[Rfam]
RNA sequence: GCGCCCUUCGUCUAUCGGUUAGGACGCCAGAUUUUCAUUCUGGUAAGAGGGGUUCGAUUCCCCUAGGGCGUA
Numbered sequence: 001g002c003g004c005c006c007u008u009c010g011u012c013u014a015u016c017g018g019u020u021a022g023g024a025c026g027c028c029a030g031a032u033u034u035u036c037a038u039u040c041u042g043g044u045a046a047g048a049g050g051g052g053u054u055c056g057a058u059u060c061c062c063c064u065a066g067g068g069c070g071u072a
Base pairs, nucleotide, nucleotide: 001071002070003069004068005067006066007065010025011024012023013022027043028042029041030040031039048064049063050062051061052060
A member of the RNA family "tRNA" from a Parvibaculaceae bacterium, 72 nucleotides long. A reference for the family is Hou (1993), "The tertiary structure of tRNA and the development of the genetic code", Trends Biochem Sci. The family is grouped with related families in Rfam's "tRNA clan". The source organism's lineage runs through Bacteria, Pseudomonadati, Pseudomonadota, Alphaproteobacteria and Parvibaculaceae.